A member of the RNA family "Streptomyces RNA 2736" from Streptantibioticus cattleyicolor, 60 nucleotides long. Identified by deep sequencing of transcriptome at the end of exponential growth phase. Appears smaller on northern blot than sequencing transcript. This indicates processing step. Streptomyces specific. A reference for the family is Vockenhuber et al. (2011), "Deep sequencing-based identification of small non-coding RNAs in Streptomyces coelicolor", RNA Biol. Rfam classes the family as a small RNA.

[Rfam]
Nucleotides: 060
Stems, first nucleotide, its partner, number of pairs: 001058002003037005010029004014024003042051003
Number, partner (000 for none) and nucleotide at each position: 001058c002057g003037c004036c005035c006034g007033g008000u009000a010029c011028g012027g013026a014024c015023c016022c017000g018000u019000g020000g021000g022016g023015g024014g025000a026013u027012c028011c029010g030000c031000u032000u033007c034006c035005g036004g037003g038000g039000c040000a041000c042051g043050g044049g045000g046000g047000c048000g049044c050043c051042c052000c053000g054000c055000u056000c057002c058001g059000g060000a

It scores 44 bits against the family's covariance model.